This 67-nucleotide RNA from Durio zibethinus belongs to the Rfam family "Small nucleolar RNA U54". The base pairs follow the family's consensus structure, which was predicted with PFOLD. From the family's description: U54 is a C/D box small nucleolar RNA, which acts as a methylation guide for 18S ribosomal RNA in plants. Clan: U54 clan. It is annotated as a C/D-box small nucleolar RNA.
RNA sequence: AGCUCUGUGAUUACUUAGCCCAAUUUGGGCAAUAUACGCUAUUCCGAUAUGCAUAAAAAAAUGAGCU
Numbered sequence: 001a002g003c004u005c006u007g008u009g010a011u012u013a014c015u016u017a018g019c020c021c022a023a024u025u026u027g028g029g030c031a032a033u034a035u036a037c038g039c040u041a042u043u044c045c046g047a048u049a050u051g052c053a054u055a056a057a058a059a060a061a062u063g064a065g066c067u
Base pairs, nucleotide, nucleotide: 001067002066003065004064005063